[Rfam]
RNA sequence: UACCCAAUUACAUAUCGUACUCGUAUAUUUUCAGUAAUAAGGUCUGAGCGUCUCUACCUGGUUCCCAUUGAAAGAACUAGACUACGAGUUGAAGCUGUACACAC
Number, nucleotide and partner (000 for none) at each position: 001u000002a000003c000004c000005c000006a000007a000008u000009u000010a000011c000012a000013u000014a000015u000016c000017g000018u000019a089020c088021u087022c086023g085024u084025a083026u000027a000028u000029u000030u048031u047032c046033a045034g044035u000036a000037a000038u000039a000040a000041g000042g000043u000044c034045u033046g032047a031048g030049c000050g000051u000052c000053u000054c000055u000056a000057c000058c080059u079060g078061g077062u076063u075064c074065c000066c000067a000068u000069u000070g000071a000072a000073a000074g064075a063076a062077c061078u060079a059080g058081a000082c000083u025084a024085c023086g022087a021088g020089u019090u000091g000092a000093a000094g000095c000096u000097g000098u000099a000100c000101a000102c000103a000104c000
Purine riboswitch aptamer: a 104-nucleotide RNA sequence from Halobacillus salinus. The family's consensus secondary structure is taken from published work. Its family is annotated with purine nucleobase biosynthetic process in the Gene Ontology. Lineage of the source: Bacteria > Bacillati > Caryophanales > Bacillaceae > Halobacillus.